This 134-nucleotide sequence from Pogona vitticeps belongs to the Rfam family "Small nucleolar RNA SNORA44".
RNA sequence: CUGCAUGUUAAACCAAGAGCUUUGGCUUGGCAAAUGGCCACAGGGUCUCCAACAACAUGCAAGAACAAGAUGGGAGGGACUUUGACAUCUCCGGCCCUUAUUAGCUGUGGAUGUCACUCGACUCUCCUACAUGC
Numbered sequence: 001c002u003g004c005a006u007g008u009u010a011a012a013c014c015a016a017g018a019g020c021u022u023u024g025g026c027u028u029g030g031c032a033a034a035u036g037g038c039c040a041c042a043g044g045g046u047c048u049c050c051a052a053c054a055a056c057a058u059g060c061a062a063g064a065a066c067a068a069g070a071u072g073g074g075a076g077g078g079a080c081u082u083u084g085a086c087a088u089c090u091c092c093g094g095c096c097c098u099u100a101u102u103a104g105c106u107g108u109g110g111a112u113g114u115c116a117c118u119c120g121a122c123u124c125u126c127c128u129a130c131a132u133g134c
Base pairs, nucleotide, nucleotide: 013043019038020037021034022033023032024031073127074126075125076124077123078122089113091107093105
Dot-bracket structure: ............(.....((((((......))))..))....).............................((((((..........(.(.(...........).).....)........)))))).......
About this RNA: Pairs were carried over by alignment from the consensus structure, which was predicted with PFOLD. Taxonomically the source falls in Pogona (Eukaryota, Eumetazoa, Sauria, Episquamata). Rfam links the family to the GO terms nucleolus and RNA processing. Rfam describes the family as follows. ACA44 is a member of the H/ACA class of snoRNA that guide the sites of modification of uridines to pseudouridines.